[Rfam]
RNA sequence: GCUAAACACUUACAACUGUUUGCAGAGGAAACUGAGACUUCAUAGCUAUGUCUCAGUCUCAUCUGCAAAGAAGUAAGUGCUUUGC
Numbered sequence: 001g002c003u004a005a006a007c008a009c010u011u012a013c014a015a016c017u018g019u020u021u022g023c024a025g026a027g028g029a030a031a032c033u034g035a036g037a038c039u040u041c042a043u044a045g046c047u048a049u050g051u052c053u054c055a056g057u058c059u060c061a062u063c064u065g066c067a068a069a070g071a072a073g074u075a076a077g078u079g080c081u082u083u084g085c
Stems, first nucleotide, its partner, number of pairs: 001085002004082002007079007017071001019069008028060002031057007041050003